[Rfam]
RNA: TPP riboswitch aptamer (THI element)
RNA sequence: CCACUGAAGCGGGGGUGCCUGGCGAAACCAGGCUGAGAGAGUCCCUUGGAACCUGAUCCGGUUUGCACCGGCGUAGGGAGCUUUGAGCAGCAGGCG
Number, nucleotide and partner (000 for none) at each position: 001c000002c000003a000004c000005u000006g084007a083008a082009g081010c080011g046012g045013g044014g043015g000016u040017g033018c032019c031020u030021g029022g000023c000024g000025a000026a000027a000028c000029c021030a020031g019032g018033c017034u000035g000036a000037g000038a000039g000040a016041g000042u000043c014044c013045c012046u011047u000048g000049g000050a000051a000052c077053c076054u075055g074056a000057u000058c071059c070060g069061g068062u000063u000064u000065g000066c000067a000068c061069c060070g059071g058072c000073g000074u055075a054076g053077g052078g000079a000080g010081c009082u008083u007084u006085g000086a000087g000088c000089a000090g000091c000092a000093g000094g000095c000096g000